[Rfam]
RNA sequence: CCUGCUCACACGGGGUGCCCUUCGGGCUGAGAGGCGUUUGCGCCAACCCGUCGAACCUGAUCCGGCUCGUACCGGCGGAGGGAUUGCGGGCGUUUCGGCGA
Numbered sequence: 001c002c003u004g005c006u007c008a009c010a011c012g013g014g015g016u017g018c019c020c021u022u023c024g025g026g027c028u029g030a031g032a033g034g035c036g037u038u039u040g041c042g043c044c045a046a047c048c049c050g051u052c053g054a055a056c057c058u059g060a061u062c063c064g065g066c067u068c069g070u071a072c073c074g075g076c077g078g079a080g081g082g083a084u085u086g087c088g089g090g091c092g093u094u095u096c097g098g099c100g101a
Stems, first nucleotide, its partner, number of pairs: 006089002009086002011050004017027004034043003056081003062075004